[Rfam]
RNA sequence: ACUCAAUCUUAGGGGUGCUCCCUUUUCAACGAAAGAGAGCUGAGAUGAUACCCAUAGACCUGAUCCAGGUAAUGCUGGCGUAGGGAAAAGAGAUUACAAUCCUC
Numbered sequence: 001a002c003u004c005a006a007u008c009u010u011a012g013g014g015g016u017g018c019u020c021c022c023u024u025u026u027c028a029a030c031g032a033a034a035g036a037g038a039g040c041u042g043a044g045a046u047g048a049u050a051c052c053c054a055u056a057g058a059c060c061u062g063a064u065c066c067a068g069g070u071a072a073u074g075c076u077g078g079c080g081u082a083g084g085g086a087a088a089a090g091a092g093a094u095u096a097c098a099a100u101c102c103u104c
Base pairs, nucleotide, nucleotide: 007091008090009089010088012053013052014051016048017040018039019038020037059084060083061082062081065078066077067076068075

A member of the RNA family "TPP riboswitch aptamer (THI element)", 104 nucleotides long. From the family's description: Vitamin B(1) in its active form thiamin pyrophosphate (TPP) is an essential coenzyme that is synthesised by coupling of pyrimidine and thiazole moieties in bacteria. The previously detected thiamin-regulatory element, thi box was extended, resulting in a new, highly conserved RNA secondary structure, the THI element, which is widely distributed in eubacteria and also occurs in some archaea. It scores 64 bits against the family's covariance model.